[Rfam]
RNA sequence: GGUGUAAAGGGUGCGUAGGCGGAUUGAUUAGUCGGGAGUUAAAGCCUCUUGCUUAACGAGAGAACAGCUUCCGAUACUGUCAGUCUAGAGUGCCGAAGAGGAAGAUGGAAUUUCCGGUGUAGCGGUGGAAUGUGUAGAGAUCGGAAAGAACACCAGUUGCGAAGGCAGUCUUCUGGUCGGUAACUGACGCUGAUGUACGAAAGCGUGGGUAGCAAACAGGAUUAGAUACCCUGGUAGUCCACGCUGUAAACGAUGGAUGCUAGAUGUUGGCUCUUGGGUCAGUGUCGUAGUUAACGCAUUAAGCAUCCCACCUGGGAAGUACGCUCGCAAGGGUGAAACUCAAAGGAAU
Numbered sequence: 001g002g003u004g005u006a007a008a009g010g011g012u013g014c015g016u017a018g019g020c021g022g023a024u025u026g027a028u029u030a031g032u033c034g035g036g037a038g039u040u041a042a043a044g045c046c047u048c049u050u051g052c053u054u055a056a057c058g059a060g061a062g063a064a065c066a067g068c069u070u071c072c073g074a075u076a077c078u079g080u081c082a083g084u085c086u087a088g089a090g091u092g093c094c095g096a097a098g099a100g101g102a103a104g105a106u107g108g109a110a111u112u113u114c115c116g117g118u119g120u121a122g123c124g125g126u127g128g129a130a131u132g133u134g135u136a137g138a139g140a141u142c143g144g145a146a147a148g149a150a151c152a153c154c155a156g157u158u159g160c161g162a163a164g165g166c167a168g169u170c171u172u173c174u175g176g177u178c179g180g181u182a183a184c185u186g187a188c189g190c191u192g193a194u195g196u197a198c199g200a201a202a203g204c205g206u207g208g209g210u211a212g213c214a215a216a217c218a219g220g221a222u223u224a225g226a227u228a229c230c231c232u233g234g235u236a237g238u239c240c241a242c243g244c245u246g247u248a249a250a251c252g253a254u255g256g257a258u259g260c261u262a263g264a265u266g267u268u269g270g271c272u273c274u275u276g277g278g279u280c281a282g283u284g285u286c287g288u289a290g291u292u293a294a295c296g297c298a299u300u301a302a303g304c305a306u307c308c309c310a311c312c313u314g315g316g317a318a319g320u321a322c323g324c325u326c327g328c329a330a331g332g333g334u335g336a337a338a339c340u341c342a343a344a345g346g347a348a349u
Base pairs, nucleotide, nucleotide: 001312002311003310009309011198012197013196014195016192018191019190020189022085023084024083025082026081027080028079030078031077032074033073034072035071036070037069038068039067040066046062047061048060049059050058051057089185090184091183092181093180094179095178096177100174101173102172103171104170105169106168107151111147112146113145114144115143116142117141118140122133123132124131159166160165203244204243205242206241207240208239212238213237217233218232219231220230255308256307257306258305259304260303263286264285265284266283267282268281269280270279271278272277290297291296314341315340316339323334324333325332326331